This 289-nucleotide RNA sequence from Clostridium homopropionicum belongs to the Rfam family "glmS glucosamine-6-phosphate activated ribozyme aptamer". This entry contains a glucosamine-6-phosphate activated ribozyme that is found in the mRNA for GlmS. GlmS is an enzyme that uses fructose-6-phosphate and glutamine to generate glucosamine-6-phosphate.
RNA sequence: AAAUAUAUUAAAGCGCCAGAGCUAAGCAGGGAGCCUGAAUCAAAGAUUGUCUUAUAGGAAACUCAAACUAAGGUCUGAGUAAGCUCGAAUAAGCCAAAUUAGCACUCUGUGUAAGUGACUUGCACCAAAUCAUAGAUUUGGGCAAUCUACUUAAGAUUUGGAUUCUCGCUUAGCUGACGAGGGUGGGGAGUAUCGAAAAUUCGGCGGAUGCCCCACGGUAUAGUGCUACCGAUAAAGACUGGCAAAACUGAAAAGUAAUUUUCAGUACAAAUUCAGUCAGGCACUCACA
Numbered sequence: 001a002a003a004u005a006u007a008u009u010a011a012a013g014c015g016c017c018a019g020a021g022c023u024a025a026g027c028a029g030g031g032a033g034c035c036u037g038a039a040u041c042a043a044a045g046a047u048u049g050u051c052u053u054a055u056a057g058g059a060a061a062c063u064c065a066a067a068c069u070a071a072g073g074u075c076u077g078a079g080u081a082a083g084c085u086c087g088a089a090u091a092a093g094c095c096a097a098a099u100u101a102g103c104a105c106u107c108u109g110u111g112u113a114a115g116u117g118a119c120u121u122g123c124a125c126c127a128a129a130u131c132a133u134a135g136a137u138u139u140g141g142g143c144a145a146u147c148u149a150c151u152u153a154a155g156a157u158u159u160g161g162a163u164u165c166u167c168g169c170u171u172a173g174c175u176g177a178c179g180a181g182g183g184u185g186g187g188g189a190g191u192a193u194c195g196a197a198a199a200u201u202c203g204g205c206g207g208a209u210g211c212c213c214c215a216c217g218g219u220a221u222a223g224u225g226c227u228a229c230c231g232a233u234a235a236a237g238a239c240u241g242g243c244a245a246a247a248c249u250g251a252a253a254a255g256u257a258a259u260u261u262u263c264a265g266u267a268c269a270a271a272u273u274c275a276g277u278c279a280g281g282c283a284c285u286c287a288c289a
Stems, first nucleotide, its partner, number of pairs: 020175008029166004184215005193204004216231005237278005248265007
A reference for the family is Winkler et al. (2004), "Control of gene expression by a natural metabolite-responsive ribozyme", Nature.